[Rfam]
The record is a 71-nucleotide sequence from Rhizobacter koreensis, which matches "tRNA" in Rfam. Lineage of the source: Bacteria > Pseudomonadota > Betaproteobacteria > Sphaerotilaceae > Rhizobacter. Rfam links the family to the GO term triplet codon-amino acid adaptor activity. About the family: Transfer RNA (tRNA) molecules are approximately 80 nucleotides in length. A search with the family's covariance model found it, with a score of 56 bits.

RNA sequence: GGCGCGGUAGCAAAGCGGUUAUGCACCGGAUUGCAAAUCCGUUCAGCCCGGUUCGACUCCGGGCCGCGCCU
Number, nucleotide and partner (000 for none) at each position: 001g070002g069003c068004g067005c066006g065007g064008u000009a000010g024011c023012a022013a000014a000015g000016c000017g000018g000019u000020u000021a000022u012023g011024c010025a000026c000027c041028g040029g039030a038031u000032u000033g000034c000035a000036a000037a000038u030039c029040c028041g027042u000043u000044c000045a000046g000047c063048c062049c061050g060051g059052u000053u000054c000055g000056a000057c000058u000059c051060c050061g049062g048063g047064c007065c006066g005067c004068g003069c002070c001071u000